RNA sequence: GGCUGGUCUGAGUGCAGUGGUGUUUACAACUAAUAGAUCACAGUCAGUUACUGUUUGCUCUCCACUCCCACAGCUUCACCUGACUAGCCUAAA
Numbered sequence: 001g002g003c004u005g006g007u008c009u010g011a012g013u014g015c016a017g018u019g020g021u022g023u024u025u026a027c028a029a030c031u032a033a034u035a036g037a038u039c040a041c042a043g044u045c046a047g048u049u050a051c052u053g054u055u056u057g058c059u060c061u062c063c064a065c066u067c068c069c070a071c072a073g074c075u076u077c078a079c080c081u082g083a084c085u086a087g088c089c090u091a092a093a
Stems, first nucleotide, its partner, number of pairs: 001089008010081001014077001017071004022067001028055003
Rfam assigns this 93-nucleotide sequence from Prolemur simus to the family "Y RNA". The family's RNA type in Rfam is non-coding RNA gene. It scores 54 bits against the family's covariance model.